Shown here is a 63-nucleotide RNA from Monodelphis domestica, a member of the family "mir-8/mir-141/mir-200 microRNA precursor family".
Gene Ontology terms of the family: RISC complex and miRNA-mediated post-transcriptional gene silencing.
Pairs were carried over by alignment from the consensus structure, which was predicted with RNAalifold.
Rfam's curators put it in the seed alignment.
The literature on the family includes a 2001 paper in Science by Lagos-Quintana et al., "Identification of novel genes coding for small expressed RNAs".
Lineage of the source: Eukaryota > Bilateria > Vertebrata > Euteleostomi > Monodelphis.
[Rfam]
RNA sequence: GGGGCCAUCUUCCAGUACAGUGGUGGAUGGUGAAGCUUCUAACACUGUCUGGUAAAGAUGCCC
Numbered sequence: 001g002g003g004g005c006c007a008u009c010u011u012c013c014a015g016u017a018c019a020g021u022g023g024u025g026g027a028u029g030g031u032g033a034a035g036c037u038u039c040u041a042a043c044a045c046u047g048u049c050u051g052g053u054a055a056a057g058a059u060g061c062c063c
Base pairs, nucleotide, nucleotide: 003063004062006060007059008058009057010055011054012052013051015050017048018047019046020045021044022043024041025040026039027038